[Rfam]
Description
The family of this 445-nucleotide RNA sequence from Cedecea neteri is "cspA thermoregulator". A reference for the family is Giuliodori et al. (2010), "The cspA mRNA is a thermosensor that modulates translation of the cold-shock protein CspA", Mol Cell. It scores 253 bits against the family's covariance model.
RNA sequence: CCCGGUUUGGAACACAGACCUUAUGAAAGCAGUUUUAGUAAAGCAGUCCUCAGUUCAAGCGCUAUCUUAGAUAUCCCUUCUUCUCGAGUCUCCUCCUAAGUGCCCGAAUAAGUCCAACUCUGCUGAACAGACCAUGUUCGCCGCGUUUAGUGGCUCAAGAAAACGAAAAGGUAAUAUCUAUGUCUAACAAAAUGACUGGUUUGGUAAAAUGGUUCAACGCUGAGAAAGGUUUCGGCUUCAUCUCUCCUACCGAUGGCAGCAAAGAUGUAUUCGUACACUUCUCUGCAAUCCAGAGCGAUAACUUCAAAACCCUCGACGAAGGUCAGAAAGUUGAGUUCUCUAUCGAGAACGGCGCUAAAGGCCCAGCUGCUGCUAACGUUGUUGCGCUGUAAUUCAGCCUGACGUUUCAGAAGUGAAAAAAACCCGCUACGGCGGGUUUUUUUGU
Numbered sequence: 001c002c003c004g005g006u007u008u009g010g011a012a013c014a015c016a017g018a019c020c021u022u023a024u025g026a027a028a029g030c031a032g033u034u035u036u037a038g039u040a041a042a043g044c045a046g047u048c049c050u051c052a053g054u055u056c057a058a059g060c061g062c063u064a065u066c067u068u069a070g071a072u073a074u075c076c077c078u079u080c081u082u083c084u085c086g087a088g089u090c091u092c093c094u095c096c097u098a099a100g101u102g103c104c105c106g107a108a109u110a111a112g113u114c115c116a117a118c119u120c121u122g123c124u125g126a127a128c129a130g131a132c133c134a135u136g137u138u139c140g141c142c143g144c145g146u147u148u149a150g151u152g153g154c155u156c157a158a159g160a161a162a163a164c165g166a167a168a169a170g171g172u173a174a175u176a177u178c179u180a181u182g183u184c185u186a187a188c189a190a191a192a193u194g195a196c197u198g199g200u201u202u203g204g205u206a207a208a209a210u211g212g213u214u215c216a217a218c219g220c221u222g223a224g225a226a227a228g229g230u231u232u233c234g235g236c237u238u239c240a241u242c243u244c245u246c247c248u249a250c251c252g253a254u255g256g257c258a259g260c261a262a263a264g265a266u267g268u269a270u271u272c273g274u275a276c277a278c279u280u281c282u283c284u285g286c287a288a289u290c291c292a293g294a295g296c297g298a299u300a301a302c303u304u305c306a307a308a309a310c311c312c313u314c315g316a317c318g319a320a321g322g323u324c325a326g327a328a329a330g331u332u333g334a335g336u337u338c339u340c341u342a343u344c345g346a347g348a349a350c351g352g353c354g355c356u357a358a359a360g361g362c363c364c365a366g367c368u369g370c371u372g373c374u375a376a377c378g379u380u381g382u383u384g385c386g387c388u389g390u391a392a393u394u395c396a397g398c399c400u401g402a403c404g405u406u407u408c409a410g411a412a413g414u415g416a417a418a419a420a421a422a423c424c425c426g427c428u429a430c431g432g433c434g435g436g437u438u439u440u441u442u443u444g445u
Base pairs, nucleotide, nucleotide: 004020005019006018007017008016009015028248029247031245032244043238045237046236047235048234049229050228054227055226063222064221066219068217070215071214073213075212076211080182082180092171093170094169097166100128101127103125140154141153142152143151144150184199185198186197251345252344253343254342255341256340264272265271277331278330279329280328282327283326284325285324286322289316290315292313293312297310299308351364352363354362355361356360366390367389369387371384372383374381393410394409396407397406399404416443417442418441419440420439421438422437423436424435425434426433427432